Shown here is a 107-nucleotide sequence from Flavobacterium succinicans, a member of the family "6S-Flavo RNA". It scores 85 bits against the family's covariance model. By type it is a small RNA. The family's consensus secondary structure is taken from published work.
[Rfam]
RNA sequence: ACUCAACACUAACAAUUUAGAAUGAGCGAAUCAUCGUUACUAUAGCAAGCCAAUUCAGUUUGGAAGCUUGAACAACGAGUUAGCUCAAAACUUGUCUUUUCGAGUUU
Numbered sequence: 001a002c003u004c005a006a007c008a009c010u011a012a013c014a015a016u017u018u019a020g021a022a023u024g025a026g027c028g029a030a031u032c033a034u035c036g037u038u039a040c041u042a043u044a045g046c047a048a049g050c051c052a053a054u055u056c057a058g059u060u061u062g063g064a065a066g067c068u069u070g071a072a073c074a075a076c077g078a079g080u081u082a083g084c085u086c087a088a089a090a091c092u093u094g095u096c097u098u099u100u101c102g103a104g105u106u107u
Stems, first nucleotide, its partner, number of pairs: 023087005034078005044068002050063004